[Rfam]
RNA sequence: GGGUAUUCUGAAGGCCUGUCAUCUAGGCUACACGCGAAGAACCCGGUUUCUCCACAUGCCUAGGGGAAAGUCCCCGGACGCCCGGCAGAAAUUGCCCCUGCAUAGACGCAGUUAACCGGCCUGCGGCUCUUCAACCUGAGCCAAGACGCUCCCCGGAGCCGAGCUUGGAGCUCGCAGGCCGGCGUUGUCACCGCAAGAGUAAUGCAGGCGCUGUCUAAUCAGCCGUGAACACAACGGGGCUCAUUCUCAGAAUACG
Numbered sequence: 001g002g003g004u005a006u007u008c009u010g011a012a013g014g015c016c017u018g019u020c021a022u023c024u025a026g027g028c029u030a031c032a033c034g035c036g037a038a039g040a041a042c043c044c045g046g047u048u049u050c051u052c053c054a055c056a057u058g059c060c061u062a063g064g065g066g067a068a069a070g071u072c073c074c075c076g077g078a079c080g081c082c083c084g085g086c087a088g089a090a091a092u093u094g095c096c097c098c099u100g101c102a103u104a105g106a107c108g109c110a111g112u113u114a115a116c117c118g119g120c121c122u123g124c125g126g127c128u129c130u131u132c133a134a135c136c137u138g139a140g141c142c143a144a145g146a147c148g149c150u151c152c153c154c155g156g157a158g159c160c161g162a163g164c165u166u167g168g169a170g171c172u173c174g175c176a177g178g179c180c181g182g183c184g185u186u187g188u189c190a191c192c193g194c195a196a197g198a199g200u201a202a203u204g205c206a207g208g209c210g211c212u213g214u215c216u217a218a219u220c221a222g223c224c225g226u227g228a229a230c231a232c233a234a235c236g237g238g239g240c241u242c243a244u245u246c247u248c249a250g251a252a253u254a255c256g
Base pairs, nucleotide, nucleotide: 003255004254005253006252007251008250009249010248011247014209015208016207017206018205019204022064023063024062025061026060027059028058038051039050040049041048069241070240072239073238074237075236084096085095086094087093098111099110100109101108116182117181118180120178121177122176123175124174125173126171127170128169129168138166139165140164141163148159149158150157151156212225213224215222216221